[Rfam]
RNA: Small nucleolar RNA Me28S-Gm1083
RNA sequence: GUGUCUCUGAUGAGCUUUAACUUUCGCCCCUAUCUGAAAAUUGAAACUUCUCCUGUUGAAUGCGAGAUUGGUCUUACUGAAACACAAG
Number, nucleotide and partner (000 for none) at each position: 001g085002u084003g083004u082005c000006u000007c000008u000009g000010a000011u000012g000013a000014g000015c000016u000017u000018u000019a000020a000021c000022u000023u000024u000025c000026g000027c000028c000029c000030c000031u000032a000033u000034c000035u000036g000037a000038a000039a000040a000041u000042u000043g000044a000045a000046a000047c000048u000049u000050c000051u000052c000053c000054u000055g000056u000057u000058g000059a000060a000061u000062g000063c000064g000065a000066g000067a000068u000069u000070g000071g000072u000073c000074u000075u000076a000077c000078u000079g000080a000081a000082a004083c003084a002085c001086a000087a000088g000